A member of the RNA family "Lysine riboswitch aptamer" from Abyssicoccus albus, 175 nucleotides long.
RNA sequence: AAAAUAAUUAGAGGUUGCUUCAAAGAUGAGUAUAUGUUGAAUGGUUCCACAAGCCAAUAUUCAGCAUUGAAAGGCGAUGAAGCCGAAAUAAAAUGAAUAUGUGGUAUUCAUUUUAUUGGGGUAUAGUUUAACAAACGAUACACUGUCAAUUAAACAUUGGUGAGCUAGAAUUUGG
Numbered sequence: 001a002a003a004a005u006a007a008u009u010a011g012a013g014g015u016u017g018c019u020u021c022a023a024a025g026a027u028g029a030g031u032a033u034a035u036g037u038u039g040a041a042u043g044g045u046u047c048c049a050c051a052a053g054c055c056a057a058u059a060u061u062c063a064g065c066a067u068u069g070a071a072a073g074g075c076g077a078u079g080a081a082g083c084c085g086a087a088a089u090a091a092a093a094u095g096a097a098u099a100u101g102u103g104g105u106a107u108u109c110a111u112u113u114u115a116u117u118g119g120g121g122u123a124u125a126g127u128u129u130a131a132c133a134a135a136c137g138a139u140a141c142a143c144u145g146u147c148a149a150u151u152a153a154a155c156a157u158u159g160g161u162g163a164g165c166u167a168g169a170a171u172u173u174g175g
Stems, first nucleotide, its partner, number of pairs: 008168004017083006025075001034067007087117012118144002121141004126136003146160005
About the family: Riboswitches are metabolite binding domains within certain messenger RNAs that serve as precision sensors for their corresponding targets. Lineage of the source: Bacteria > Bacillota > Caryophanales > Abyssicoccaceae > Abyssicoccus. It scores 99 bits against the family's covariance model.